[Rfam]
RNA sequence: AUAUUGUAUGGGCAAACCUGUUUAAAGACAGGGACGCAAAGCCAUAGGGUCUAAGGUACUGAUAAGCACUAUGAUAGCCUGGCUGCCGCA
Numbered sequence: 001a002u003a004u005u006g007u008a009u010g011g012g013c014a015a016a017c018c019u020g021u022u023u024a025a026a027g028a029c030a031g032g033g034a035c036g037c038a039a040a041g042c043c044a045u046a047g048g049g050u051c052u053a054a055g056g057u058a059c060u061g062a063u064a065a066g067c068a069c070u071a072u073g074a075u076a077g078c079c080u081g082g083c084u085g086c087c088g089c090a
Stems, first nucleotide, its partner, number of pairs: 012037002017032006040084004046080003049075003056069002059066001
The family of this 90-nucleotide RNA from an Actinomycetota bacterium is "c-di-GMP-I riboswitch aptamer". GEMM was predicted in a large-scale screen for bacterial structured RNA regulatory elements. Its family is annotated with cyclic-di-GMP binding in the Gene Ontology. Pairs were carried over by alignment from the consensus structure, which is taken from published work.